Rfam assigns this 79-nucleotide RNA sequence from Rubrobacter tropicus to the family "c-di-GMP-I-GGC riboswitch aptamer".
Pairs were carried over by alignment from the consensus structure, which is taken from published work.
Clan: c-di-GMP_I riboswitch clan.
The literature on the family includes a 2009 paper in Nat Struct Mol Biol by Smith et al., "Structural basis of ligand binding by a c-di-GMP riboswitch".

RNA sequence: UACGAAAAAGGCAAACCCGUCGCGAGGCGGGGACGCAAAGCCACGGGCCUCUUGCUGAGAGGGCGCCGGGUCGCCGAAG
Number, nucleotide and partner (000 for none) at each position: 001u079002a000003c076004g075005a000006a000007a000008a000009a000010g000011g036012c035013a000014a000015a000016c031017c030018c029019g028020u027021c026022g000023c000024g000025a000026g021027g020028c019029g018030g017031g016032g000033a000034c065035g012036c011037a000038a000039a000040g071041c070042c069043a000044c068045g067046g066047g000048c062049c061050u000051c000052u000053u000054g000055c000056u000057g000058a000059g000060a000061g049062g048063g000064c000065g034066c046067c045068g044069g042070g041071u040072c000073g000074c000075c004076g003077a000078a000079g001